The record is a 134-nucleotide sequence from Tupaia belangeri, which matches "Small nucleolar RNA SNORA43" in Rfam. ACA43 is a member of the H/ACA class of snoRNA that guide the sites of modification of uridines to pseudouridines. The source organism's lineage runs through Eukaryota, Craniata, Vertebrata, Teleostomi and Tupaia belangeri. Rfam links the family to the GO terms nucleolus and RNA processing. Rfam 15.1 lists 492 matches to the family in 142 species.
RNA sequence: GCUGCGCUUUGCCGCCAGCACCGGGUGCGGCUGCUCUGCUGUGCCCGGGCGUCGGGGCAGAGAGAACCUGGCUAUUUCUACGCUCCGUGCCCGGAAACCAGUGGGCGCUGAGAAUGGUUUGUAGCCUGACACAU
Numbered sequence: 001g002c003u004g005c006g007c008u009u010u011g012c013c014g015c016c017a018g019c020a021c022c023g024g025g026u027g028c029g030g031c032u033g034c035u036c037u038g039c040u041g042u043g044c045c046c047g048g049g050c051g052u053c054g055g056g057g058c059a060g061a062g063a064g065a066a067c068c069u070g071g072c073u074a075u076u077u078c079u080a081c082g083c084u085c086c087g088u089g090c091c092c093g094g095a096a097a098c099c100a101g102u103g104g105g106c107g108c109u110g111a112g113a114a115u116g117g118u119u120u121g122u123a124g125c126c127u128g129a130c131a132c133a134u
Stems, first nucleotide, its partner, number of pairs: 003059003007055002021048004070126003078117003083112002088107006